[Rfam]
RNA sequence: GAGGGUAGGCCCCUCGGUGCCGCCUUUCAGGAGGAUGCACAAACCACCCCAAGCUGCUGCGGUUAAGAGUAGUGGUGGUGAGCGUUGGGGAAAAGGCAGGCUCGACCUGUCAGGU
Numbered sequence: 001g002a003g004g005g006u007a008g009g010c011c012c013c014u015c016g017g018u019g020c021c022g023c024c025u026u027u028c029a030g031g032a033g034g035a036u037g038c039a040c041a042a043a044c045c046a047c048c049c050c051a052a053g054c055u056g057c058u059g060c061g062g063u064u065a066a067g068a069g070u071a072g073u074g075g076u077g078g079u080g081a082g083c084g085u086u087g088g089g090g091a092a093a094a095g096g097c098a099g100g101c102u103c104g105a106c107c108u109g110u111c112a113g114g115u
Stems, first nucleotide, its partner, number of pairs: 001015005017040004023034004045114001047090006053079002056076003060072001062070002095111006
Dot-bracket structure: (((((.....))))).((((..((((....))))..))))....(.((((((((.(((.(.((.....)).).))).)).....))))))....((((((.....))))))..).
RNA: Group II catalytic intron D1-D4-2